[Rfam]
RNA: Bacterial large subunit ribosomal RNA, nucleotides 2020 to 2602
Organism: Falseniella ignava
RNA sequence: CCCGCGACAGGACGGAAAGACCCCAUGGAGCUUCACUGCAACUUGAUAUUGAGUGAUUGUUUGUCAUGUACAGGAUAGGUAGGAGCCUAGGAACUGUGGUCGUCAGAUUACAGGGAGGCGUUGGUGGGAUACUACCCUUGACAGAUGGUCCCUCUAACUCGCGUGUAGCACACGGAAGACAGUGUCAGGUGGGCAGUUUGACUGGGGCGGUCGCCUCCUAAAGCGUAGCGGAGGCGCCCAAAGGUUCCCUCAGAAUGGUUGGAAAUCAUUCGCAGAGCGCAAAGGCAGAAGGGAGCUUGACUGCGAGACCUACAAGUCGAGCAGGGACGAAAGUCGGGCUUAGUGAUCCGGUGGUACCGUAUGGAAGGGCCAUCGCUCAACGGAUAAAAGCUACCCUGGGGAUAACAGGCUUAUCUCCCCCAAGAGUUCACAUCGACGGGGAGGUUUGGCACCUCGAUGUCGGCUCAUCGCAUCCUGGGGCUGAAGUCGGUCCCAAGGGUUGGGCUGUUCGCCCAUUAAAGCGGUACGCGAGCUGGGUUCAGAACGUCGUGAGACAGUUCGGUCCCUAUCCGUCGCGGGCGUA
Numbered sequence: 001c002c003c004g005c006g007a008c009a010g011g012a013c014g015g016a017a018a019g020a021c022c023c024c025a026u027g028g029a030g031c032u033u034c035a036c037u038g039c040a041a042c043u044u045g046a047u048a049u050u051g052a053g054u055g056a057u058u059g060u061u062u063g064u065c066a067u068g069u070a071c072a073g074g075a076u077a078g079g080u081a082g083g084a085g086c087c088u089a090g091g092a093a094c095u096g097u098g099g100u101c102g103u104c105a106g107a108u109u110a111c112a113g114g115g116a117g118g119c120g121u122u123g124g125u126g127g128g129a130u131a132c133u134a135c136c137c138u139u140g141a142c143a144g145a146u147g148g149u150c151c152c153u154c155u156a157a158c159u160c161g162c163g164u165g166u167a168g169c170a171c172a173c174g175g176a177a178g179a180c181a182g183u184g185u186c187a188g189g190u191g192g193g194c195a196g197u198u199u200g201a202c203u204g205g206g207g208c209g210g211u212c213g214c215c216u217c218c219u220a221a222a223g224c225g226u227a228g229c230g231g232a233g234g235c236g237c238c239c240a241a242a243g244g245u246u247c248c249c250u251c252a253g254a255a256u257g258g259u260u261g262g263a264a265a266u267c268a269u270u271c272g273c274a275g276a277g278c279g280c281a282a283a284g285g286c287a288g289a290a291g292g293g294a295g296c297u298u299g300a301c302u303g304c305g306a307g308a309c310c311u312a313c314a315a316g317u318c319g320a321g322c323a324g325g326g327a328c329g330a331a332a333g334u335c336g337g338g339c340u341u342a343g344u345g346a347u348c349c350g351g352u353g354g355u356a357c358c359g360u361a362u363g364g365a366a367g368g369g370c371c372a373u374c375g376c377u378c379a380a381c382g383g384a385u386a387a388a389a390g391c392u393a394c395c396c397u398g399g400g401g402a403u404a405a406c407a408g409g410c411u412u413a414u415c416u417c418c419c420c421c422a423a424g425a426g427u428u429c430a431c432a433u434c435g436a437c438g439g440g441g442a443g444g445u446u447u448g449g450c451a452c453c454u455c456g457a458u459g460u461c462g463g464c465u466c467a468u469c470g471c472a473u474c475c476u477g478g479g480g481c482u483g484a485a486g487u488c489g490g491u492c493c494c495a496a497g498g499g500u501u502g503g504g505c506u507g508u509u510c511g512c513c514c515a516u517u518a519a520a521g522c523g524g525u526a527c528g529c530g531a532g533c534u535g536g537g538u539u540c541a542g543a544a545c546g547u548c549g550u551g552a553g554a555c556a557g558u559u560c561g562g563u564c565c566c567u568a569u570c571c572g573u574c575g576c577g578g579g580c581g582u583a
Base pairs, nucleotide, nucleotide: 001579002578003577004576005575006574007573008572010571011570012569014566015565022400023399024398025397027396028395029392030391031390032389033388035197036196037195038194042189043188044187045186046185047184048183051154052153053152055150056149057148058147059146060145061144062143063142064141065140066139068137078136079135080134081133082132085119086118087117094113095112096111097110098109099108100107101106159176160175162174163173164172165171166170200212201211202210203209213235214234215233216232217231218230236381238338239337244296245295246294247293248292249291250276251275253271254270255269256268257267258266277286278285301324302323303322304321307318308317309316326335327334328333349375350374351373352372353371354370355369357368358367409450410449411448413447414444415443416442417441418440419439420438424434425433461536462534463533464532465531466528467525468524469523470522471521474499475498477494478493479492480491481490482489501515502514503513504512505511542560543559544558545557546555547554548553